[Rfam]
RNA: MIR8562 microRNA precursor family
RNA sequence: UUUUCUACAAAUCGGAAUGACCUGAAAUUUAGAGCGUGUGUUCAUAAAAAAUAGGCGAAUCUACAAAAAAUAUCAAAAAAAUAUUUUACAUGAAAAAAAUUGACCAAAAUAACCCAGAAAAGUUUUGGGGGUAUAUUUUGGUCAUUUUUUUUUUUACGAAUUAUUUUUUUUUAUAUUUUUCUUAGGUGUGUCUCACUAAGAUGUACACACGCUCCAAAUUUCAAGUCAUUCCAAUUUGUAGAAAA
Numbered sequence: 001u002u003u004u005c006u007a008c009a010a011a012u013c014g015g016a017a018u019g020a021c022c023u024g025a026a027a028u029u030u031a032g033a034g035c036g037u038g039u040g041u042u043c044a045u046a047a048a049a050a051a052u053a054g055g056c057g058a059a060u061c062u063a064c065a066a067a068a069a070a071u072a073u074c075a076a077a078a079a080a081a082u083a084u085u086u087u088a089c090a091u092g093a094a095a096a097a098a099a100u101u102g103a104c105c106a107a108a109a110u111a112a113c114c115c116a117g118a119a120a121a122g123u124u125u126u127g128g129g130g131g132u133a134u135a136u137u138u139u140g141g142u143c144a145u146u147u148u149u150u151u152u153u154u155u156a157c158g159a160a161u162u163a164u165u166u167u168u169u170u171u172u173a174u175a176u177u178u179u180u181c182u183u184a185g186g187u188g189u190g191u192c193u194c195a196c197u198a199a200g201a202u203g204u205a206c207a208c209a210c211g212c213u214c215c216a217a218a219u220u221u222c223a224a225g226u227c228a229u230u231c232c233a234a235u236u237u238g239u240a241g242a243a244a245a
Stems, first nucleotide, its partner, number of pairs: 001245012014232008023223008032214003036210006043203003061185003066180008075171003078167003096149004101144011113130002116125003